[Rfam]
Nucleotides: 106
Stems, first nucleotide, its partner, number of pairs: 005106001007104002010022004024101006033092004039067004044062002068081003
Number, partner (000 for none) and nucleotide at each position: 001000u002000g003000g004000c005106g006000a007104u008103c009000a010022u011021g012020u013019c014000a015000a016000c017000c018000g019013g020012a021011c022010g023000u024101g025100a026099c027098a028097g029096g030000g031000a032000u033092g034091g035090a036089g037000a038000a039067c040066a041065c042064g043000u044062g045061g046000a047000u048000u049000u050000u051000u052000c053000c054000g055000g056000u057000u058000u059000c060000u061045c062044c063000c064042c065041g066040u067039g068081g069080c070079c071000a072000a073000c074000g075000a076000a077000a078000u079070g080069g081068c082000a083000g084000g085000c086000g087000a088000g089036c090035u091034c092033c093000c094000a095000a096029c097028c098027u099026g100025u101024c102000u103008g104007a105000a106005u
Rfam assigns this 106-nucleotide RNA sequence from Phytoamicus setariae to the family "Rhizobiales sRNA Atu_At1". The family has 33 seed sequences and 200 matches in Rfam 15.1. The organism belongs to Phytoamicus, within Bacteria. A reference for the family is Wilms et al. (2012), "Deep sequencing uncovers numerous small RNAs on all four replicons of the plant pathogen Agrobacterium tumefaciens", RNA Biol. It is annotated as a small RNA. The match comes from Rfam's covariance-model search (101 bits).